The record is a 141-nucleotide RNA from bacterium SCGC AG-212-C10, which matches "c-di-AMP riboswitch aptamer (ydaO/yuaA leader)" in Rfam.
Its family is annotated with regulation of gene expression and cyclic-di-AMP binding in the Gene Ontology.
The match comes from Rfam's covariance-model search (97 bits).

[Rfam]
RNA sequence: UAUUUCGUGUUGCCGAAUCCCUUCUCACCGGGAGGGAACGGGGGACCCAUGUUAUCUGGGGUGUAUCGCCGGGAAACCGGCGUAGGUGACUCCCAACACCGAACCCGUCAGCUAACCCCGUAGGCGUCAGAGGGAGAGGCG
Numbered sequence: 001u002a003u004u005u006c007g008u009g010u011u012g013c014c015g016a017a018u019c020c021c022u023u024c025u026c027a028c029c030g031g032g033a034g035g036g037a038a039c040g041g042g043g044g045a046c047c048c049a050u051g052u053u054a055u056c057u058g059g060g061g062u063g064u065a066u067c068g069c070c071g072g073g074a075a076a077c078c079g080g081c082g083u084a085g086g087u088g089a090c091u092c093c094c095a096a097c098a099c100c101g102a103a104c105c106c107g108u109c110a111g112c113u114a115a116c117c118c119c120g121u122a123g124g125c126g127u128c129a130g131a132g133g134g135a136g137a138g139g140c141g
Base pairs, nucleotide, nucleotide: 011126012125013124014123018037019036020035021034022033023032024031038121039120040119041118042117043116048058049057059106060105061104067082068081069080070079085100086099087098088097